mir-8/mir-141/mir-200 microRNA precursor family: a 68-nucleotide RNA sequence from Chara braunii. A search with the family's covariance model found it, with a score of 47 bits. Taxonomically the source falls in Chara (Eukaryota, Viridiplantae, Streptophyta, Charales). Its Rfam clan is "mir-8 microRNA precursor clan".

[Rfam]
RNA sequence: GCCUACGUUUUACCGGGCAGCUCUGUUUAUAUAAAUAGUCAAACAGAGCUGCCCGGUAAAACGUAGGC
Numbered sequence: 001g002c003c004u005a006c007g008u009u010u011u012a013c014c015g016g017g018c019a020g021c022u023c024u025g026u027u028u029a030u031a032u033a034a035a036u037a038g039u040c041a042a043a044c045a046g047a048g049c050u051g052c053c054c055g056g057u058a059a060a061a062c063g064u065a066g067g068c
Stems, first nucleotide, its partner, number of pairs: 002067026
Its family is annotated with RISC complex and miRNA-mediated post-transcriptional gene silencing in the Gene Ontology.